RNA: Guanidine-II riboswitch aptamer (mini-ykkC)
Organism: Pseudoalteromonas sp. NC201
RNA sequence: UCUGGUGGACGACCUGCAGAGCUUUCUUUUACUGGCGGGGACGACCCCA
Number, nucleotide and partner (000 for none) at each position: 001u020002c019003u018004g017005g000006u000007g014008g013009a000010c000011g000012a000013c008014c007015u000016g000017c004018a003019g002020a001021g000022c000023u000024u000025u000026c000027u000028u000029u000030u000031a000032c000033u000034g000035g000036c000037g048038g047039g046040g045041a000042c000043g000044a000045c040046c039047c038048c037049a000